[Rfam]
RNA sequence: AGGGGUGGAUCUGACAUCCCUGAGUGUAUGUGGUGAACCGGAAUUUGCCCUGGGUUUCCUCAUAUUCAUUCAGGAGUGUUAGUCGCCUCU
Numbered sequence: 001a002g003g004g005g006u007g008g009a010u011c012u013g014a015c016a017u018c019c020c021u022g023a024g025u026g027u028a029u030g031u032g033g034u035g036a037a038c039c040g041g042a043a044u045u046u047g048c049c050c051u052g053g054g055u056u057u058c059c060u061c062a063u064a065u066u067c068a069u070u071c072a073g074g075a076g077u078g079u080u081a082g083u084c085g086c087c088u089c090u
Stems, first nucleotide, its partner, number of pairs: 001090008011082006018076001019074008028065005033059001035057005041051001
Rfam assigns this 90-nucleotide RNA from Mesocricetus auratus to the family "mir-670 microRNA precursor family".
The organism belongs to Mesocricetus, within Eukaryota.